[Rfam]
RNA sequence: CGUAUGGUGUUUGGUCAAGCCCGUUGUGUUUGGAUCAAAUAGCGGUACGGCCUGAUGAUGAGGU
Numbered sequence: 001c002g003u004a005u006g007g008u009g010u011u012u013g014g015u016c017a018a019g020c021c022c023g024u025u026g027u028g029u030u031u032g033g034a035u036c037a038a039a040u041a042g043c044g045g046u047a048c049g050g051c052c053u054g055a056u057g058a059u060g061a062g063g064u
Base pairs, nucleotide, nucleotide: 001049002048003047004046005045007043008042011038012037013036014035015034016033